Annotation:
Rfam assigns this 365-nucleotide RNA from Hondaea fermentalgiana to the family "RNase MRP".

RNA sequence: GAAACUCACCAAGGUCGGCAGCACGGCACACGAACGCGGCGGACGGCGGAGACGCCGGCCCGCCCGCUCGCGCGGGAGUUCGCUCCCGACGCGGGCAUUCAGGCCGUGGGAAAGUCCUCGGGCACCAAGGUAGAAAGUGCCAGCCAGAGAUGGCGAAACACCCCUCGCGUGGGAUGCAGUGCGCCCAGCUGGAAACGGUUGGUGCGUGGAGGCCAAGACGUCGGCGAAGAGCGCAAGCUUUGAGCCGGAAGAGCCGAGUCUGCAAAAAGAGAGCGCGGGUCUUUUUGCCGAAGCAAAGUUAUGCUGACAACAUCCGCACCCUCGGGCGCGGAUGUCAACUCAACGAGGCUUACUCUAGUGUGUUU
Numbered sequence: 001g002a003a004a005c006u007c008a009c010c011a012a013g014g015u016c017g018g019c020a021g022c023a024c025g026g027c028a029c030a031c032g033a034a035c036g037c038g039g040c041g042g043a044c045g046g047c048g049g050a051g052a053c054g055c056c057g058g059c060c061c062g063c064c065c066g067c068u069c070g071c072g073c074g075g076g077a078g079u080u081c082g083c084u085c086c087c088g089a090c091g092c093g094g095g096c097a098u099u100c101a102g103g104c105c106g107u108g109g110g111a112a113a114g115u116c117c118u119c120g121g122g123c124a125c126c127a128a129g130g131u132a133g134a135a136a137g138u139g140c141c142a143g144c145c146a147g148a149g150a151u152g153g154c155g156a157a158a159c160a161c162c163c164c165u166c167g168c169g170u171g172g173g174a175u176g177c178a179g180u181g182c183g184c185c186c187a188g189c190u191g192g193a194a195a196c197g198g199u200u201g202g203u204g205c206g207u208g209g210a211g212g213c214c215a216a217g218a219c220g221u222c223g224g225c226g227a228a229g230a231g232c233g234c235a236a237g238c239u240u241u242g243a244g245c246c247g248g249a250a251g252a253g254c255c256g257a258g259u260c261u262g263c264a265a266a267a268a269g270a271g272a273g274c275g276c277g278g279g280u281c282u283u284u285u286u287g288c289c290g291a292a293g294c295a296a297a298g299u300u301a302u303g304c305u306g307a308c309a310a311c312a313u314c315c316g317c318a319c320c321c322u323c324g325g326g327c328g329c330g331g332a333u334g335u336c337a338a339c340u341c342a343a344c345g346a347g348g349c350u351u352a353c354u355c356u357a358g359u360g361u362g363u364u365u
Stems, first nucleotide, its partner, number of pairs: 002365004007360003011356001014308006022108006036092003040088003112351003116348004129141004143154004199268002203264002210261004222256004239249004310335008
Dot-bracket structure: .((((.(((.(..((((((..((((((........(((.(((...........................................))).)))..........))))))...[[[.[[[[.........((((.....)))).((((....))))............................................((..((.....((((........((((.............((((...))))...)))).)))).))..))..................................)))))).((((((((..........)))))))).........]]]]]]]....).))).))))